[Rfam]
RNA sequence: GUCAGCACCCCCGGCUGAAGCACGGGGGCUUCGUGCCUCCCGCAACAGGAUAGCUAACCAGCCUAAGCUUUAACUGGCUACGUUCAGAGCAAGAGUUAAAGUUCCUACCCUGGAAUGCUUGCUAGUUCCAGGCUCUAGAACCGAAUCGUUAAAUAGUUGAUCGAGGGAGUAGACAGUGCGAUUUGGAAAGUACCGACUCUGAACAUUGGCGAAGCAACCAUUAC
Numbered sequence: 001g002u003c004a005g006c007a008c009c010c011c012c013g014g015c016u017g018a019a020g021c022a023c024g025g026g027g028g029c030u031u032c033g034u035g036c037c038u039c040c041c042g043c044a045a046c047a048g049g050a051u052a053g054c055u056a057a058c059c060a061g062c063c064u065a066a067g068c069u070u071u072a073a074c075u076g077g078c079u080a081c082g083u084u085c086a087g088a089g090c091a092a093g094a095g096u097u098a099a100a101g102u103u104c105c106u107a108c109c110c111u112g113g114a115a116u117g118c119u120u121g122c123u124a125g126u127u128c129c130a131g132g133c134u135c136u137a138g139a140a141c142c143g144a145a146u147c148g149u150u151a152a153a154u155a156g157u158u159g160a161u162c163g164a165g166g167g168a169g170u171a172g173a174c175a176g177u178g179c180g181a182u183u184u185g186g187a188a189a190g191u192a193c194c195g196a197c198u199c200u201g202a203a204c205a206u207u208g209g210c211g212a213a214g215c216a217a218c219c220a221u222u223a224c
Stems, first nucleotide, its partner, number of pairs: 001058002004055003007051001009028002011025002014021002029049003061210003065206001066079004082204006094198004103139002109132008119217005141186009153177002156174002158171002161168001
The family of this 224-nucleotide RNA from Gloeothece citriformis is "HNH endonuclease-associated RNA and ORF (HEARO) RNA". For this family Rfam cites "Exceptional structured noncoding RNAs revealed by bacterial metagenome analysis" (Weinberg et al., Nature, 2009). It is annotated as a non-coding RNA gene. The family has 139 seed sequences and 952 matches in Rfam 15.1. Rfam's curators put it in the seed alignment.